The family of this 114-nucleotide sequence from Teichococcus deserti is "SAM-I/IV (S-adenosyl methionine) riboswitch aptamer".
Clan: SAM clan.
The organism belongs to Roseomonas, within Bacteria.
[Rfam]
RNA sequence: GGGCGACAUCAAGAGUUGGGCCGACGCCCGACGCCAACCUGCCCGCCCGGGCAAGGUGGCGCCUCCUGGUCUUCCAGGGGGGAUGUGGCCGAACCGGCAAGUAUUCGGGUCCCU
Numbered sequence: 001g002g003g004c005g006a007c008a009u010c011a012a013g014a015g016u017u018g019g020g021c022c023g024a025c026g027c028c029c030g031a032c033g034c035c036a037a038c039c040u041g042c043c044c045g046c047c048c049g050g051g052c053a054a055g056g057u058g059g060c061g062c063c064u065c066c067u068g069g070u071c072u073u074c075c076a077g078g079g080g081g082g083a084u085g086u087g088g089c090c091g092a093a094c095c096g097g098c099a100a101g102u103a104u105u106c107g108g109g110u111c112c113c114u
Stems, first nucleotide, its partner, number of pairs: 006086005015032001017031001018029004033060003038056003041052003045110005088098004
About this RNA:
Rfam links the family to the GO terms S-adenosylmethionine metabolic process and regulation of gene expression.